Annotation:
The record is a 114-nucleotide sequence from Grallaria varia, which matches "Potassium channel RNA editing signal" in Rfam. NCBI's taxonomy places the organism under Eukaryota, Bilateria, Archelosauria, Archosauria, Grallaria. From the family's description: This family represents a group of sequences related to the human potassium channel Kv1.1 hairpin element which directs the efficient modification of an adenosine to inosine by an adenosine deaminase acting on RNA (ADAR). The ADAR modification causes an isoleucine/valine recoding event which lies in the ion-conducting pore of the potassium channel. It is thought that this editing event targets the process of fast inactivation and allows a more rapid recovery from inactivation at negative potentials.
RNA sequence: GUGGGCUAUGGAGACAUGUGUCCCACCACCCUAGGUGGGAAGAUCGUGGGCACCCUGUGCGCUAUCGCAGGGGUUUUGACCAUCGCGCUGCCUGUCCCCGUCAUCGUCUCCAAC
Number, nucleotide and partner (000 for none) at each position: 001g114002u113003g000004g111005g110006c000007u000008a107009u106010g105011g104012a000013g102014a101015c100016a000017u000018g097019u000020g095021u094022c000023c000024c000025a000026c000027c000028a000029c000030c000031c000032u000033a000034g000035g000036u000037g077038g076039g075040a074041a000042g000043a000044u000045c000046g000047u000048g000049g063050g062051c061052a000053c000054c000055c000056u000057g000058u000059g000060c000061g051062c050063u049064a000065u000066c000067g000068c000069a000070g000071g000072g000073g000074u040075u039076u038077u037078g000079a000080c000081c000082a000083u000084c000085g000086c000087g000088c000089u000090g000091c000092c000093u000094g021095u020096c000097c018098c000099c000100g015101u014102c013103a000104u011105c010106g009107u008108c000109u000110c005111c004112a000113a002114c001